[Rfam]
This 69-nucleotide RNA sequence from Strigamia maritima belongs to the Rfam family "mir-2 microRNA precursor family". Rfam 15.1 lists 918 matches to the family in 280 species. For this family Rfam cites "An extensive class of small RNAs in Caenorhabditis elegans" (Lee and Ambros, Science, 2001). A search with the family's covariance model found it, with a score of 60 bits. Lineage of the source: Eukaryota > Arthropoda > Mandibulata > Myriapoda > Strigamia.

RNA sequence: UUAGCCAUCAAAGAGGCUGUGAAAUGUGUACUACUAGAAACAUAUCACAGCCAUUUUUGAUGAGCUGAA
Numbered sequence: 001u002u003a004g005c006c007a008u009c010a011a012a013g014a015g016g017c018u019g020u021g022a023a024a025u026g027u028g029u030a031c032u033a034c035u036a037g038a039a040a041c042a043u044a045u046c047a048c049a050g051c052c053a054u055u056u057u058u059g060a061u062g063a064g065c066u067g068a069a
Stems, first nucleotide, its partner, number of pairs: 006062008015052008025044003